[Rfam]
RNA sequence: AAGCUGGUCAAUGAAUCUGCUUACCUGAAUGUGUUUCUGCAGAAAUUUAGUAAAUGCCGGCAAUAGGAGAGCCGUGUCACGAGCCUUCAAGACGGGGAUGUCUUUAAGGUCCCUGAAAAUGGCAACAAGA
Numbered sequence: 001a002a003g004c005u006g007g008u009c010a011a012u013g014a015a016u017c018u019g020c021u022u023a024c025c026u027g028a029a030u031g032u033g034u035u036u037c038u039g040c041a042g043a044a045a046u047u048u049a050g051u052a053a054a055u056g057c058c059g060g061c062a063a064u065a066g067g068a069g070a071g072c073c074g075u076g077u078c079a080c081g082a083g084c085c086u087u088c089a090a091g092a093c094g095g096g097g098a099u100g101u102c103u104u105u106a107a108g109g110u111c112c113c114u115g116a117a118a119a120u121g122g123c124a125a126c127a128a129g130a
Stems, first nucleotide, its partner, number of pairs: 003061005016043005071123004083110005089104001091102003
The record is a 130-nucleotide sequence from Sus scrofa, which matches "Small nucleolar RNA SNORA33" in Rfam. Pairs were carried over by alignment from the consensus structure, which was predicted with PFOLD. It is annotated as an H/ACA-box small nucleolar RNA. Rfam's curators write: ACA33 is a member of the H/ACA class of snoRNA that guide the sites of modification of uridines to pseudouridines.